[Rfam]
Sense overlapping transcript RNA 0042 (sot): a 165-nucleotide sequence from Natronorubrum daqingense.
About the family: It is associated with IS1341-type transposase (tnpB) genes, at the 3'-end in H. salinarum NRC-1. The tetraloop structural motif may be functional.
Pairs were carried over by alignment from the consensus structure, which was predicted with RNAfold.
RNA sequence: AGAUAACUCAGAAUCCUCCGACGGAGGAUAUGAGUAACGGUCGUUUGGCACGGCCAGUAGCCUACCUGUUCAACCAAACCUCGGGGCGUUUCGCACCGGGCGGACAGCUCAGUUGCAAACCUUAAUAUCCCAACGCUCGGGAAUCCUCGCCCUUCAGGGCGGGGA
Numbered sequence: 001a002g003a004u005a006a007c008u009c010a011g012a013a014u015c016c017u018c019c020g021a022c023g024g025a026g027g028a029u030a031u032g033a034g035u036a037a038c039g040g041u042c043g044u045u046u047g048g049c050a051c052g053g054c055c056a057g058u059a060g061c062c063u064a065c066c067u068g069u070u071c072a073a074c075c076a077a078a079c080c081u082c083g084g085g086g087c088g089u090u091u092c093g094c095a096c097c098g099g100g101c102g103g104a105c106a107g108c109u110c111a112g113u114u115g116c117a118a119a120c121c122u123u124a125a126u127a128u129c130c131c132a133a134c135g136c137u138c139g140g141g142a143a144u145c146c147u148c149g150c151c152c153u154u155c156a157g158g159g160c161g162g163g164g165a
Base pairs, nucleotide, nucleotide: 004037007034008033009032010031013029014028015027016026017025018024019023039055040054041053042052043051058115059114060113061112063111066107067106068105069104070103071102083097084096086094087093128142129141130140131139133137144165145164146163147162148161149160150159151158152157

The match comes from Rfam's covariance-model search (91 bits).